Notes: The family of this 124-nucleotide sequence from Clostridium estertheticum is "c-di-AMP riboswitch aptamer (ydaO/yuaA leader)". The match comes from Rfam's covariance-model search (94 bits).

RNA sequence: AUACUAUAUUAGCCGAAGUAAAAAAUACGCGGAGGAACCAAGCAUCUGGGGUGAAUCACUAAUUGUGUAGGUUAAACCUUUCCCGAACCCGUCAGCUAACUCCGCAGGCAAAAGGAGAGAAAAA
Numbered sequence: 001a002u003a004c005u006a007u008a009u010u011a012g013c014c015g016a017a018g019u020a021a022a023a024a025a026u027a028c029g030c031g032g033a034g035g036a037a038c039c040a041a042g043c044a045u046c047u048g049g050g051g052u053g054a055a056u057c058a059c060u061a062a063u064u065g066u067g068u069a070g071g072u073u074a075a076a077c078c079u080u081u082c083c084c085g086a087a088c089c090c091g092u093c094a095g096c097u098a099a100c101u102c103c104g105c106a107g108g109c110a111a112a113a114g115g116a117g118a119g120a121a122a123a124a
Stems, first nucleotide, its partner, number of pairs: 012109003018028003029105006039048002049090003057067003070084002
Dot-bracket structure: ...........(((...(((.....)))((((((....((......))(((.....(((.....)))..((...........))...))).........)))))).)))...............
Pairs were carried over by alignment from the consensus structure.